[Rfam]
RNA sequence: AAGUUUUAUGACAAAGUGUACAUCGCAGUGAUAAUCGGGAGAUCGUAAAGACGCUGUAAGUACAUCCUGGUAAGCUCAAACCGCGCCAUCCCUGGCGCUGAUGCUUU
Numbered sequence: 001a002a003g004u005u006u007u008a009u010g011a012c013a014a015a016g017u018g019u020a021c022a023u024c025g026c027a028g029u030g031a032u033a034a035u036c037g038g039g040a041g042a043u044c045g046u047a048a049a050g051a052c053g054c055u056g057u058a059a060g061u062a063c064a065u066c067c068u069g070g071u072a073a074g075c076u077c078a079a080a081c082c083g084c085g086c087c088a089u090c091c092c093u094g095g096c097g098c099u100g101a102u103g104c105u106u107u
Stems, first nucleotide, its partner, number of pairs: 013107006030077002041066003045063003051057002081100001083098006